Betaproteobacteria toxic small RNA: a 59-nucleotide RNA sequence from Pseudoduganella ginsengisoli. Overexpression in amino aid rich medium attenuates growth, suggesting role in repressing amino acid intake and metabolism. For this family Rfam cites "A vast collection of microbial genes that are toxic to bacteria" (Kimelman et al., Genome Res, 2012). It scores 65 bits against the family's covariance model. The organism belongs to Pseudoduganella, within Bacteria. The family's consensus secondary structure was predicted with WAR.
RNA sequence: UGUCUCCUCCAACUCUCCCAGAAUUGGAUUCAGCCCGCUCCCGAAGCGGGCUUUUUUUU
Numbered sequence: 001u002g003u004c005u006c007c008u009c010c011a012a013c014u015c016u017c018c019c020a021g022a023a024u025u026g027g028a029u030u031c032a033g034c035c036c037g038c039u040c041c042c043g044a045a046g047c048g049g050g051c052u053u054u055u056u057u058u059u
Stems, first nucleotide, its partner, number of pairs: 008028005014022002032052008